[Rfam]
RNA sequence: UCUGCGGCGCAAAGGUGCCGGACGCCCAGGCGGCGUUCGAAAGCGCCAAUACCCUGCUGCCGACGGUGCUGGGCGGGGUGAACUUCGUCCUGCACGCGG
Numbered sequence: 001u002c003u004g005c006g007g008c009g010c011a012a013a014g015g016u017g018c019c020g021g022a023c024g025c026c027c028a029g030g031c032g033g034c035g036u037u038c039g040a041a042a043g044c045g046c047c048a049a050u051a052c053c054c055u056g057c058u059g060c061c062g063a064c065g066g067u068g069c070u071g072g073g074c075g076g077g078g079u080g081a082a083c084u085u086c087g088u089c090c091u092g093c094a095c096g097c098g099g
Base pairs, nucleotide, nucleotide: 003011024031032061033060034059076097078095079094